[Rfam]
RNA sequence: UCUCUUUAAAUGCCUGAAAGCUUUGCCUAUAUUAGGAGGGCUGGUUUGCCAGCUAUGGCGAUAAACGGCGCAGUCAGUAUAUAUAGCGGACCCGGGGGCGGUACCCGGCGCCUCCACCAUCAGCAGCCGCGCACAGCAUGGAUUAUGGCGGCUGUUGAUGAUGGGGGCGAAACAGGAUCGACGUGUGUAGAACGCUGUAAGCCUUUCGCCCGGCAUGGUUCCGCCGUGAUGGGCCACCUUUGAUAAAUGCCAACGACAACGACGUCGAGUUUGCUGUUGCCGCGUAAGCGGUUCCUGUAAACUGCAUUUACUGAAUUCCUGAAGAUUGACAUCUUCAGGUGGGGGCUGGCCCACCUAGCAACAGAACGGGCCACC
Number, nucleotide and partner (000 for none) at each position: 001u000002c000003u000004c000005u000006u000007u000008a000009a000010a000011u000012g000013c000014c000015u000016g000017a000018a000019a000020g000021c000022u000023u000024u000025g000026c000027c000028u000029a000030u000031a000032u000033u000034a000035g000036g000037a000038g000039g000040g053041c052042u051043g050044g049045u000046u000047u000048g000049c044050c043051a042052g041053c040054u000055a000056u000057g210058g209059c208060g207061a206062u000063a000064a000065a000066c000067g203068g202069c201070g198071c197072a196073g195074u000075c000076a000077g000078u000079a000080u000081a000082u187083a186084u185085a000086g184087c183088g182089g000090a000091c000092c108093c107094g106095g105096g104097g000098g000099c000100g000101g000102u000103a000104c096105c095106c094107g093108g092109c169110g168111c167112c166113u165114c164115c163116a000117c000118c000119a000120u000121c000122a000123g000124c000125a000126g000127c000128c000129g000130c000131g000132c000133a000134c000135a000136g000137c000138a000139u000140g000141g000142a000143u000144u000145a000146u000147g000148g000149c000150g000151g000152c000153u000154g000155u000156u000157g000158a000159u000160g000161a000162u000163g115164g114165g113166g112167g111168c110169g109170a000171a000172a000173c000174a000175g000176g000177a000178u000179c000180g000181a000182c088183g087184u086185g084186u083187g082188u000189a000190g000191a000192a000193c000194g000195c073196u072197g071198u070199a000200a000201g069202c068203c067204u000205u000206u061207c060208g059209c058210c057211c226212g225213g224214c223215a000216u236217g235218g234219u000220u000221c233222c232223g214224c213225c212226g211227u000228g000229a000230u000231g000232g222233g221234c218235c217236a216237c000238c000239u000240u000241u000242g000243a000244u000245a000246a000247a000248u000249g000250c000251c000252a000253a000254c000255g000256a000257c000258a000259a000260c000261g000262a000263c000264g000265u000266c000267g000268a000269g000270u000271u000272u000273g000274c000275u000276g000277u000278u000279g000280c000281c000282g000283c000284g000285u000286a000287a000288g000289c000290g000291g000292u000293u000294c000295c000296u000297g000298u000299a000300a000301a000302c000303u000304g000305c000306a000307u000308u000309u000310a000311c000312u000313g000314a000315a000316u000317u000318c000319c000320u000321g000322a000323a000324g000325a000326u000327u000328g000329a000330c000331a000332u000333c000334u000335u000336c000337a000338g000339g000340u000341g000342g356343g355344g354345g000346c000347u000348g372349g371350c369351c368352c000353a000354c344355c343356u342357a000358g000359c000360a000361a000362c000363a000364g000365a000366a000367c000368g351369g350370g000371c349372c348373a000374c000375c000

Record summary: Alphaproteobacteria transfer-messenger RNA: a 375-nucleotide sequence from Eilatimonas milleporae. Rfam's curators write: Bacterial tmRNA, also known as 10Sa RNA or SsrA, is named for its dual tRNA and mRNA-like properties. Its role is to liberate the mRNA from a stalled ribosome. A search with the family's covariance model found it, with a score of 241 bits. The family's consensus secondary structure is taken from published work.